[Rfam]
RNA: ASdes TB sRNA
RNA sequence: AGGGCGACGGGAUCCACGCCGCGGGUCACGACGAGGUAGUCGCGCAUCGCGAUGCCGUGUCGGUUCUC
Numbered sequence: 001a002g003g004g005c006g007a008c009g010g011g012a013u014c015c016a017c018g019c020c021g022c023g024g025g026u027c028a029c030g031a032c033g034a035g036g037u038a039g040u041c042g043c044g045c046a047u048c049g050c051g052a053u054g055c056c057g058u059g060u061c062g063g064u065u066c067u068c
Stems, first nucleotide, its partner, number of pairs: 005062002008059002013028001016026002035056004040052005